[Rfam]
This 89-nucleotide sequence from Pseudooceanicola algae belongs to the Rfam family "Glycine riboswitch aptamer".
A search with the family's covariance model found it, with a score of 57 bits.
Rfam 15.1 lists 9,425 matches to the family in 5,228 species.
The organism belongs to Pseudooceanicola, within Bacteria.
Pairs were carried over by alignment from the consensus structure.
RNA sequence: UUCCACCGACACGGGAGAACCGGCCAAGCGCCGGUGCCGAAGGAGCAACCGCCCCGGAAACUCUCAGGCUUCAGGACCGGUCGGCACGA
Numbered sequence: 001u002u003c004c005a006c007c008g009a010c011a012c013g014g015g016a017g018a019a020c021c022g023g024c025c026a027a028g029c030g031c032c033g034g035u036g037c038c039g040a041a042g043g044a045g046c047a048a049c050c051g052c053c054c055c056g057g058a059a060a061c062u063c064u065c066a067g068g069c070u071u072c073a074g075g076a077c078c079g080g081u082c083g084g085c086a087c088g089a
Stems, first nucleotide, its partner, number of pairs: 006084005012079003020034004036069003039065002043063003049057002